[Rfam]
RNA sequence: CGCUCCCGUCGCGACUGGCGCCAGAGGGUGGAACCGACCACCGGGGAGCGACACCGAGCACCGCCGCGCGCCUGGGCACCCGCC
Numbered sequence: 001c002g003c004u005c006c007c008g009u010c011g012c013g014a015c016u017g018g019c020g021c022c023a024g025a026g027g028g029u030g031g032a033a034c035c036g037a038c039c040a041c042c043g044g045g046g047a048g049c050g051a052c053a054c055c056g057a058g059c060a061c062c063g064c065c066g067c068g069c070g071c072c073u074g075g076g077c078a079c080c081c082g083c084c
Stems, first nucleotide, its partner, number of pairs: 004056001008052005015045002017072005028041004063077003

Rfam assigns this 84-nucleotide sequence from Patulibacter medicamentivorans to the family "ZMP/ZTP riboswitch aptamer (pfl RNA motif)".
Its family is annotated with regulation of purine nucleotide biosynthetic process and one-carbon metabolic process in the Gene Ontology.
Lineage of the source: Bacteria > Bacillati > Actinomycetota > Thermoleophilia > Patulibacter.
The base pairs follow the family's consensus structure, which is taken from published work.